[Rfam]
RNA sequence: UCAUACUAGCUGGGGAGUCAGCGGUGCCCUGUAACCUGCAAUCCGCUAUAGCAGGAGUGAAUUCCUUGCUGAGGCUACAUACUGUGUGGUCUGGCCUAUAUAAGUGGCGUUGAGAAUUGGGUCCCACGCAACAGAGAUUUGUGAACCUCGUCAGAUCCGGAAGGAAGCAGCGAUAAGCAAACCCCUCUGUGUGCCGUGGAGCAGCCUGGUUUGAGUUAACUGUAUAGGUAACGCGCAUAGUAUCUAGUCGAAGCAAGGUGUGUGA
Numbered sequence: 001u002c003a004u005a006c007u008a009g010c011u012g013g014g015g016a017g018u019c020a021g022c023g024g025u026g027c028c029c030u031g032u033a034a035c036c037u038g039c040a041a042u043c044c045g046c047u048a049u050a051g052c053a054g055g056a057g058u059g060a061a062u063u064c065c066u067u068g069c070u071g072a073g074g075c076u077a078c079a080u081a082c083u084g085u086g087u088g089g090u091c092u093g094g095c096c097u098a099u100a101u102a103a104g105u106g107g108c109g110u111u112g113a114g115a116a117u118u119g120g121g122u123c124c125c126a127c128g129c130a131a132c133a134g135a136g137a138u139u140u141g142u143g144a145a146c147c148u149c150g151u152c153a154g155a156u157c158c159g160g161a162a163g164g165a166a167g168c169a170g171c172g173a174u175a176a177g178c179a180a181a182c183c184c185c186u187c188u189g190u191g192u193g194c195c196g197u198g199g200a201g202c203a204g205c206c207u208g209g210u211u212u213g214a215g216u217u218a219a220c221u222g223u224a225u226a227g228g229u230a231a232c233g234c235g236c237a238u239a240g241u242a243u244c245u246a247g248u249c250g251a252a253g254c255a256a257g258g259u260g261u262g263u264g265a
Stems, first nucleotide, its partner, number of pairs: 001265006009058003012030004017025003035055005064258007073249005079243010092230002096227006104220002106217003114212009124199005129191002132189005138181005148173004156165003
Bacterial large signal recognition particle RNA: a 265-nucleotide sequence from Clostridium collagenovorans. Rfam's curators write: The signal recognition particle (SRP) is a universally conserved ribonucleoprotein involved in the co-translational targeting of proteins to membranes.